About this RNA: A member of the RNA family "mir-184 microRNA precursor family" from Diabrotica balteata, 79 nucleotides long. A search with the family's covariance model found it, with a score of 66 bits.

[Rfam]
RNA sequence: UUUCUUACAGACCCUUGUCAUUCUCACGCCCGGUGUAUUUCGACGACUGGACGGAGAACUGAUAAGGGCUUGUGGGAAA
Numbered sequence: 001u002u003u004c005u006u007a008c009a010g011a012c013c014c015u016u017g018u019c020a021u022u023c024u025c026a027c028g029c030c031c032g033g034u035g036u037a038u039u040u041c042g043a044c045g046a047c048u049g050g051a052c053g054g055a056g057a058a059c060u061g062a063u064a065a066g067g068g069c070u071u072g073u074g075g076g077a078a079a
Stems, first nucleotide, its partner, number of pairs: 012068009021058005029050002
For this family Rfam cites "The developmental miRNA profiles of zebrafish as determined by small RNA cloning" (Chen et al., Genes Dev, 2005).